Rfam assigns this 126-nucleotide RNA sequence from Streptomyces sp. Ru72 to the family "Streptomyces RNA 5676".
[Rfam]
RNA sequence: AGAUGAGAGAUACACCCGCUCACAGGGGACUGUGGGCGGCACUGGGCCGGGGCCUCCCCAGCUUCGACCUGGUCGUGCCCUCGCGCACACAAGGAGCCUUCGGCUCCGGAUCUCCUCAUGAUCGGA
Numbered sequence: 001a002g003a004u005g006a007g008a009g010a011u012a013c014a015c016c017c018g019c020u021c022a023c024a025g026g027g028g029a030c031u032g033u034g035g036g037c038g039g040c041a042c043u044g045g046g047c048c049g050g051g052g053c054c055u056c057c058c059c060a061g062c063u064u065c066g067a068c069c070u071g072g073u074c075g076u077g078c079c080c081u082c083g084c085g086c087a088c089a090c091a092a093g094g095a096g097c098c099u100u101c102g103g104c105u106c107c108g109g110a111u112c113u114c115c116u117c118a119u120g121a122u123c124g125g126a
Stems, first nucleotide, its partner, number of pairs: 004118004009114002016039010041073006048066006075088004093107005119124001
From the family's description: Identified by deep sequencing of transcriptome at the end of exponential growth phase. Appears longer on northern blot than sequencing transcript. This indicates processing step. Streptomyces specific. Lineage of the source: Bacteria > Bacillati > Actinomycetota > Streptomycetaceae > Streptomyces. The base pairs follow the family's consensus structure. On this family, see Vockenhuber et al., RNA Biol 2011: "Deep sequencing-based identification of small non-coding RNAs in Streptomyces coelicolor".